A member of the RNA family "Metazoan signal recognition particle RNA" from Tieghemiomyces parasiticus, 307 nucleotides long. Rfam's curators write: The signal recognition particle (SRP) is a universally conserved ribonucleoprotein. The family is grouped with related families in Rfam's "SRP clan". It scores 100 bits against the family's covariance model. NCBI's taxonomy places the organism under Eukaryota, Fungi, Kickxellomycota, Kickxellomycotina, Tieghemiomyces.
RNA sequence: ACUGGGUGCCGUUGCGGGUUCCUGUGAUGCAAGUCUAUGGCAAGUCACAGUGUGCGGCGACGUGAGCACUGGGGAAUCAUGGCUGACUAGUAGGCUUACUUGGGAAAUCUGUCUCAUUGGAAUGAGGAGUUGGCCUGGCUGGCUUGGUGUAAACCGAGCGGGUGACGCCAUUGAAGUGGUGGGCAAUGCGUGAGGCUGGUAACAGAGCAGCGAACACCAUCCGCUCCACCAUGGUCAAGAGACUGCAGGAUUUCUUCCGGCCUUCAGGUCAGUCCCCCCUGAGUGGCAUCGUCUACCGCGUACUUUU
Numbered sequence: 001a002c003u004g005g006g007u008g009c010c011g012u013u014g015c016g017g018g019u020u021c022c023u024g025u026g027a028u029g030c031a032a033g034u035c036u037a038u039g040g041c042a043a044g045u046c047a048c049a050g051u052g053u054g055c056g057g058c059g060a061c062g063u064g065a066g067c068a069c070u071g072g073g074g075a076a077u078c079a080u081g082g083c084u085g086a087c088u089a090g091u092a093g094g095c096u097u098a099c100u101u102g103g104g105a106a107a108u109c110u111g112u113c114u115c116a117u118u119g120g121a122a123u124g125a126g127g128a129g130u131u132g133g134c135c136u137g138g139c140u141g142g143c144u145u146g147g148u149g150u151a152a153a154c155c156g157a158g159c160g161g162g163u164g165a166c167g168c169c170a171u172u173g174a175a176g177u178g179g180u181g182g183g184c185a186a187u188g189c190g191u192g193a194g195g196c197u198g199g200u201a202a203c204a205g206a207g208c209a210g211c212g213a214a215c216a217c218c219a220u221c222c223g224c225u226c227c228a229c230c231a232u233g234g235u236c237a238a239g240a241g242a243c244u245g246c247a248g249g250a251u252u253u254c255u256u257c258c259g260g261c262c263u264u265c266a267g268g269u270c271a272g273u274c275c276c277c278c279c280u281g282a283g284u285g286g287c288a289u290c291g292u293c294u295a296c297c298g299c300g301u302a303c304u305u306u307u
Stems, first nucleotide, its partner, number of pairs: 001045003004023003008019003028042003049304009060294001062292004067285004072280003081274001083272005090265001092263005105252002108249005113241002117238004122232002124229001126227005131170004136165001138163003142159007172176001178221005187214001189212003196205003
The base pairs follow the family's consensus structure, which is taken from published work.